S15-Methanomicrobia ribosomal protein leader: an 80-nucleotide sequence. Rfam classes the family as a cis-regulatory leader. The literature on the family includes a 2020 paper in BMC Microbiol by Eckert and Weinberg, "Discovery of 20 novel ribosomal leader candidates in bacteria and archaea". Its Rfam clan is "Ribosomal Protein S15 Leader clan".

RNA sequence: GGCACUUUUUAUCAAAAGGUGCUGGCAGAUGUAAGUCCGACGUGCCGAAGGCACGGCCUGCAUUACAGGCUAGGGAUUAC
Numbered sequence: 001g002g003c004a005c006u007u008u009u010u011a012u013c014a015a016a017a018g019g020u021g022c023u024g025g026c027a028g029a030u031g032u033a034a035g036u037c038c039g040a041c042g043u044g045c046c047g048a049a050g051g052c053a054c055g056g057c058c059u060g061c062a063u064u065a066c067a068g069g070c071u072a073g074g075g076a077u078u079a080c
Stems, first nucleotide, its partner, number of pairs: 001023010031080004037075002042054005055071006